The record is a 58-nucleotide RNA sequence from Musa balbisiana, which matches "Plastid-psbA-3 3UTR RNA" in Rfam.
On this family, see Richter et al., Plant Commun 2023: "Retrograde signaling in plants: A critical review focusing on the GUN pathway and beyond".
Plastid psbA-3 is a non-coding RNA (ncRNA) present in plastids. It was identified in inverted repeat sequences in the 3 prime untranslate region (3UTR) of photosystem II quinone-binding protein (psbA).
Clan: Plastid-psbA 3UTR RNA clan.
It scores 55 bits against the family's covariance model.
The family's RNA type in Rfam is cis-regulatory element.
Taxonomically the source falls in Musa (Eukaryota, Tracheophyta, Mesangiospermae, commelinids).
[Rfam]
RNA sequence: AAAGUAGCAAUACCCCAUUUCUUUCUUUAGCAAGACAUUGGGUAUUGCUACUUUGUUU
Numbered sequence: 001a002a003a004g005u006a007g008c009a010a011u012a013c014c015c016c017a018u019u020u021c022u023u024u025c026u027u028u029a030g031c032a033a034g035a036c037a038u039u040g041g042g043u044a045u046u047g048c049u050a051c052u053u054u055g056u057u058u
Stems, first nucleotide, its partner, number of pairs: 001054014019037001020035004